[Rfam]
RNA sequence: UCGUCAGGCUCAGUCCCCUCCCGAUAAACCCCUAAAUAGCGGCUUUCCUGGGGGGUCAGCCGGGCUU
Dot-bracket structure: ..(((.((.(..(((((((...((.((..(.((....)).)..))))..))))))).).)).)))..